[Rfam]
RNA sequence: AACAAUUUGUCCAGCGUCCCGCAGCAUUUUUAAAAAGUCCCGAAUUUGGGGAAAUCAAUUUUUGGAAAGAAUUCGGGACUUUUUAAAAAUGCUGCGGGACGCUGGACAAAUUGUUAA
Numbered sequence: 001a002a003c004a005a006u007u008u009g010u011c012c013a014g015c016g017u018c019c020c021g022c023a024g025c026a027u028u029u030u031u032a033a034a035a036a037g038u039c040c041c042g043a044a045u046u047u048g049g050g051g052a053a054a055u056c057a058a059u060u061u062u063u064g065g066a067a068a069g070a071a072u073u074c075g076g077g078a079c080u081u082u083u084u085a086a087a088a089a090u091g092c093u094g095c096g097g098g099a100c101g102c103u104g105g106a107c108a109a110a111u112u113g114u115u116a117a
Stems, first nucleotide, its partner, number of pairs: 001115047
Rfam assigns this 117-nucleotide sequence from Pipistrellus kuhlii to the family "mir-9261 microRNA precursor family". A search with the family's covariance model found it, with a score of 88 bits. Taxonomically the source falls in Pipistrellus (Eukaryota, Opisthokonta, Metazoa, Amniota). Gene Ontology terms of the family: RISC complex and miRNA-mediated post-transcriptional gene silencing.